Overview: The record is a 122-nucleotide RNA from Aliiroseovarius pelagivivens, which matches "Alphaproteobacterial ar14" in Rfam. Pairs were carried over by alignment from the consensus structure.

Nucleotides: 122
Base pairs, nucleotide, nucleotide: 007036008035011032012031013030014029015028042074044072045071046070047069048068049067050066051065086117087116088115089114090113091112092111093110094109095108096107
Number, partner (000 for none) and nucleotide at each position: 001000c002000g003000a004000u005000u006000a007036g008035a009000c010000g011032u012031g013030g014029g015028u016000c017000a018000c019000c020000u021000c022000c023000u024000c025000c026000c027000g028015g029014c030013c031012c032011a033000a034000g035008u036007c037000a038000c039000a040000g041000c042074g043000c044072c045071g046070g047069a048068c049067c050066u051065c052000a053000c054000u055000c056000c057000u058000c059000c060000u061000c062000c063000c064000a065051g066050a067049g068048g069047u070046c071045c072044g073000a074042c075000c076000a077000c078000a079000u080000a081000g082000g083000a084000a085000a086117c087116g088115g089114c090113g091112c092111c093110g094109c095108u096107c097000a098000c099000c100000u101000c102000c103000u104000c105000c106000c107096g108095a109094g110093c111092g112091g113090c114089g115088c116087c117086g118000u119000u120000u121000u122000u
A search with the family's covariance model found it, with a score of 78 bits. Rfam classes the family as a small RNA.